Shown here is a 116-nucleotide sequence from Firmicutes bacterium CAG:791, a member of the family "TPP riboswitch aptamer (THI element)".
It scores 64 bits against the family's covariance model.
Lineage of the source: Bacteria > Bacillati > Bacillota.
[Rfam]
RNA sequence: UAAAGACGCUAGGGGCGCAUAUGCUGAGACCGAUGCAUCCUCCGGAAGGCAGGAGCAUCGAACCCUUACAACUUGAACCGGGUAAUACCGGCGGAAGGAAGCUUUUUCAGACAUUU
Numbered sequence: 001u002a003a004a005g006a007c008g009c010u011a012g013g014g015g016c017g018c019a020u021a022u023g024c025u026g027a028g029a030c031c032g033a034u035g036c037a038u039c040c041u042c043c044g045g046a047a048g049g050c051a052g053g054a055g056c057a058u059c060g061a062a063c064c065c066u067u068a069c070a071a072c073u074u075g076a077a078c079c080g081g082g083u084a085a086u087a088c089c090g091g092c093g094g095a096a097g098g099a100a101g102c103u104u105u106u107u108c109a110g111a112c113a114u115u116u
Stems, first nucleotide, its partner, number of pairs: 006104001008102003011066004016060001017024002032059004072097003078091004